[Rfam]
RNA sequence: UUCUAUGUUUUCUAGGGUUCCGCAAUAAUGGAUUGGUCUGGUCCAAGAGAAAACACGCAGUAUAUACUGUGACACGGAGGGACAAAAGCCUGGGAGAU
Numbered sequence: 001u002u003c004u005a006u007g008u009u010u011u012c013u014a015g016g017g018u019u020c021c022g023c024a025a026u027a028a029u030g031g032a033u034u035g036g037u038c039u040g041g042u043c044c045a046a047g048a049g050a051a052a053a054c055a056c057g058c059a060g061u062a063u064a065u066a067c068u069g070u071g072a073c074a075c076g077g078a079g080g081g082a083c084a085a086a087a088g089c090c091u092g093g094g095a096g097a098u
Stems, first nucleotide, its partner, number of pairs: 007054006015044002020041002022038001023035004056071006073093001075096001079091003
Dot-bracket structure: ......((((((..((...(((((((.....))))..).)).))....)))))).((((((....)))))).(.[...(((.......))).)..]..